[Rfam]
The record is a 91-nucleotide sequence from Pseudolactococcus hodotermopsidis, which matches "Ribosomal protein L13 leader" in Rfam. The organism belongs to Pseudolactococcus, within Bacteria. Rfam describes the family as follows. This family is a putative r-protein leader autoregulatory structure found in B. subtilis and other low-GC Gram-positive bacteria. It is located in the 5' untranslated regions of mRNAs encoding the L13-S9 (rplM-rpsI) ribosomal protein operon. The family's consensus secondary structure was predicted with CMfinder. The literature on the family includes a 1994 paper in Prog Nucleic Acid Res Mol Biol by Zengel and Lindahl, "Diverse mechanisms for regulating ribosomal protein synthesis in Escherichia coli".
RNA sequence: GGUAUUGUUUACCCCAUUUUUAAGUCCCGGAAACUUGAAGAUACCGUGUGCAGAUAAGGAACGAUUUGCAUGCAACCUAUGUAAACACAGU
Numbered sequence: 001g002g003u004a005u006u007g008u009u010u011a012c013c014c015c016a017u018u019u020u021u022a023a024g025u026c027c028c029g030g031a032a033a034c035u036u037g038a039a040g041a042u043a044c045c046g047u048g049u050g051c052a053g054a055u056a057a058g059g060a061a062c063g064a065u066u067u068g069c070a071u072g073c074a075a076c077c078u079a080u081g082u083a084a085a086c087a088c089a090g091u
Base pairs, nucleotide, nucleotide: 006087007086008085009084010083011082012081016042017041018040019039020038021037022036023035024034